Shown here is a 140-nucleotide RNA from Actinomadura viridis, a member of the family "c-di-AMP riboswitch aptamer (ydaO/yuaA leader)". A search with the family's covariance model found it, with a score of 84 bits. The organism belongs to Actinomadura, within Bacteria.
RNA sequence: GUCCGUUCCGCGCCGACGACGGCGUCCGGAGCCGGGGACCCACACCUCUGGGGUGAAUCGGCGCACGCUCAUGUGCGCCGUAGGGCGACUUCCACGCCCGAAUCCGACAGCUAACCCGGUAGGCGGCCAUGGAAGGAAUC
Number, nucleotide and partner (000 for none) at each position: 001g000002u030003c029004c028005g000006u000007u000008c000009c000010g000011c000012g000013c000014c000015g000016a000017c000018g000019a000020c000021g000022g000023c000024g000025u000026c000027c000028g004029g003030a002031g120032c119033c118034g117035g116036g115037g000038a000039c000040c000041c050042a049043c000044a000045c000046c000047u000048c000049u042050g041051g105052g104053g103054u000055g000056a000057a000058u000059c080060g079061g078062c077063g076064c075065a074066c073067g072068c000069u000070c000071a000072u067073g066074u065075g064076c063077g062078c061079c060080g059081u000082a000083g099084g098085g097086c096087g000088a000089c000090u000091u000092c000093c000094a000095c000096g086097c085098c084099c083100g000101a000102a000103u053104c052105c051106g000107a000108c000109a000110g000111c000112u000113a000114a000115c036116c035117c034118g033119g032120u031121a000122g000123g000124c000125g000126g000127c000128c000129a000130u000131g000132g000133a000134a000135g000136g000137a000138a000139u000140c000